[Rfam]
Annotation:
The family of this 173-nucleotide RNA sequence from Megasphaera cerevisiae is "Group II catalytic intron D1-D4-3". Lineage of the source: Bacteria > Bacillota > Negativicutes > Megasphaera > Megasphaera cerevisiae. It scores 71 bits against the family's covariance model. Gene Ontology term of the family: Group II intron splicing.

RNA sequence: UCAAGGCAGCAAGAUGGAAUCUGAAGAAGCUGGCGGCAAAUCGUUGGUCCGGUGAACAGAAACCGCAUACAAGACAGGCGUAAUCGGGUAAGGCUGAUCUAUAAACCGAGGCCCAAAACUAUUCGAGGCCAAUUCUGUAGAUGUGGCAGACAGAUGAAAAGAAAGACUGCAUU
Numbered sequence: 001u002c003a004a005g006g007c008a009g010c011a012a013g014a015u016g017g018a019a020u021c022u023g024a025a026g027a028a029g030c031u032g033g034c035g036g037c038a039a040a041u042c043g044u045u046g047g048u049c050c051g052g053u054g055a056a057c058a059g060a061a062a063c064c065g066c067a068u069a070c071a072a073g074a075c076a077g078g079c080g081u082a083a084u085c086g087g088g089u090a091a092g093g094c095u096g097a098u099c100u101a102u103a104a105a106c107c108g109a110g111g112c113c114c115a116a117a118a119c120u121a122u123u124c125g126a127g128g129c130c131a132a133u134u135c136u137g138u139a140g141a142u143g144u145g146g147c148a149g150a151c152a153g154a155u156g157a158a159a160a161g162a163a164a165g166a167c168u169g170c171a172u173u
Base pairs, nucleotide, nucleotide: 001018002017004015029173031171032170037165041160044157045156046155047151048150049149051147063146064145065144066143067142068141074138075137076136078134080133081132085128086114087113088112089111092107093106095104